[Rfam]
RNA sequence: CGAAGUUAAGGGCAAACUACCCGAAAGGGUGGGACGCAAAGCUACGGGUCUACAGCUCACAAAAGCCAUGACCGCCGGGUUGCCGUG
Numbered sequence: 001c002g003a004a005g006u007u008a009a010g011g012g013c014a015a016a017c018u019a020c021c022c023g024a025a026a027g028g029g030u031g032g033g034a035c036g037c038a039a040a041g042c043u044a045c046g047g048g049u050c051u052a053c054a055g056c057u058c059a060c061a062a063a064a065g066c067c068a069u070g071a072c073c074g075c076c077g078g079g080u081u082g083c084c085g086u087g
Base pairs, nucleotide, nucleotide: 012037013036017032018031019030020029021028022027040081041080042079043078045077046076047075048072049071050070055066056065057064
RNA: c-di-GMP-I riboswitch aptamer
Organism: Clostridiales bacterium PH28_bin88